[Rfam]
RNA sequence: GAUGAAUUCCCCGAGAGGGAACUCCGGGAAGAUACAAUAAAUUAAGAUUAAGUGGUAGGAAUCAACGAGCUGGAGCGAAAU
Numbered sequence: 001g002a003u004g005a006a007u008u009c010c011c012c013g014a015g016a017g018g019g020a021a022c023u024c025c026g027g028g029a030a031g032a033u034a035c036a037a038u039a040a041a042u043u044a045a046g047a048u049u050a051a052g053u054g055g056u057a058g059g060a061a062u063c064a065a066c067g068a069g070c071u072g073g074a075g076c077g078a079a080a081u
Stems, first nucleotide, its partner, number of pairs: 007030005013024003063077001066073001
The family of this 81-nucleotide RNA from Aegilops tauschii is "Plastid-rpl20 3UTR RNA". Rfam's curators write: Plastid rpl20 is a non-coding RNA (ncRNA) recognised in plastids. A search with the family's covariance model found it, with a score of 72 bits. A reference for the family is Richter et al. (2023), "Retrograde signaling in plants: A critical review focusing on the GUN pathway and beyond", Plant Commun. The base pairs follow the family's consensus structure, which was predicted with LocARNA. Taxonomically the source falls in Aegilops tauschii (Eukaryota, Embryophyta, Petrosaviidae, Pooideae).